[Rfam]
RNA sequence: UAUAUUCCAUAUGACUGGCGGAUUAGUGGGAUUACCCACAGGGAGUAUGGAUGCACGUAGUCGACCGCCUGGGCAACCCUC
Numbered sequence: 001u002a003u004a005u006u007c008c009a010u011a012u013g014a015c016u017g018g019c020g021g022a023u024u025a026g027u028g029g030g031a032u033u034a035c036c037c038a039c040a041g042g043g044a045g046u047a048u049g050g051a052u053g054c055a056c057g058u059a060g061u062c063g064a065c066c067g068c069c070u071g072g073g074c075a076a077c078c079c080u081c
Base pairs, nucleotide, nucleotide: 006051007050008049009048010047011046012045015042016041017069018068019067020066021065026039027038028037029036058076060074061073062072
Dot-bracket structure: .....(((((((..(([[[[[....((((......)))).))..)))))))......(.(((..]]]]]..))).).....
The record is an 81-nucleotide RNA from Eubacterium ventriosum, which matches "ZMP/ZTP riboswitch aptamer (pfl RNA motif)" in Rfam.